Rfam assigns this 66-nucleotide RNA sequence from Neodrepanis coruscans to the family "Small nucleolar RNA SNORD24". The literature on the family includes a 1996 paper in J Mol Biol by Nicoloso et al., "Intron-encoded, antisense small nucleolar RNAs: the characterization of nine novel species points to their direct role as guides for the 2'-O-ribose methylation of rRNAs".
RNA sequence: UGCAGAUGAUGAUGACUUUUUGCUGCCUAAACACACCUGAUGACACCCACCAAGAUCUCUGAUGCA
Numbered sequence: 001u002g003c004a005g006a007u008g009a010u011g012a013u014g015a016c017u018u019u020u021u022g023c024u025g026c027c028u029a030a031a032c033a034c035a036c037c038u039g040a041u042g043a044c045a046c047c048c049a050c051c052a053a054g055a056u057c058u059c060u061g062a063u064g065c066a
Stems, first nucleotide, its partner, number of pairs: 001066004

Lineage of the source: Eukaryota > Teleostomi > Dipnotetrapodomorpha > Theropoda > Neodrepanis. A search with the family's covariance model found it, with a score of 43 bits.